This 47-nucleotide RNA sequence from Papaver somniferum belongs to the Rfam family "Plastid-rpl16 group II-D1 intron". Plastid-rpl16 is a non-coding RNA (ncRNA) recognised in plastids. It was recognised in and intronic region of a ribosome rpl16 gene. The base pairs follow the family's consensus structure, which was predicted with LocARNA.

[Rfam]
RNA sequence: GAGAGCUUCGAGUCAAUAAAGACCUAGUAGAUUGACUCGAAAAAACA
Numbered sequence: 001g002a003g004a005g006c007u008u009c010g011a012g013u014c015a016a017u018a019a020a021g022a023c024c025u026a027g028u029a030g031a032u033u034g035a036c037u038c039g040a041a042a043a044a045a046c047a
Base pairs, nucleotide, nucleotide: 007041008040010038011037012036013035014034015033016032017031